[Rfam]
RNA sequence: ACACGGGAAAGGAGGUGGUCCGAAGAAUGAGUUCUUCCAGGACGCGUGAGGUGGCUGCCCGCUAGCAGCCCCAGCACCACGAGAGGCAGAAGUGCCUCCCGAGCUGCUGGCGAAUCUCAAGCAGCUACCGGCCCGCAGGCGAACCGGGAACGUCCCCCGGUGCGGCUCCUCCCAGGAGCCAGCGCCUGCGGGUUGCUGCAU
Numbered sequence: 001a002c003a004c005g006g007g008a009a010a011g012g013a014g015g016u017g018g019u020c021c022g023a024a025g026a027a028u029g030a031g032u033u034c035u036u037c038c039a040g041g042a043c044g045c046g047u048g049a050g051g052u053g054g055c056u057g058c059c060c061g062c063u064a065g066c067a068g069c070c071c072c073a074g075c076a077c078c079a080c081g082a083g084a085g086g087c088a089g090a091a092g093u094g095c096c097u098c099c100c101g102a103g104c105u106g107c108u109g110g111c112g113a114a115u116c117u118c119a120a121g122c123a124g125c126u127a128c129c130g131g132c133c134c135g136c137a138g139g140c141g142a143a144c145c146g147g148g149a150a151c152g153u154c155c156c157c158c159g160g161u162g163c164g165g166c167u168c169c170u171c172c173c174a175g176g177a178g179c180c181a182g183c184g185c186c187u188g189c190g191g192g193u194u195g196c197u198g199c200a201u
Base pairs, nucleotide, nucleotide: 014059015058016057017056018055019054060112061111062110063109064108065107066106068104069103071101073097074096129195130194131193132192133191134190135189136188137187138186139185140184141183143161144160145159146158147157148156
RNA: Actinobacteria sRNA Ms_IGR-5
Organism: Nocardioides anomalus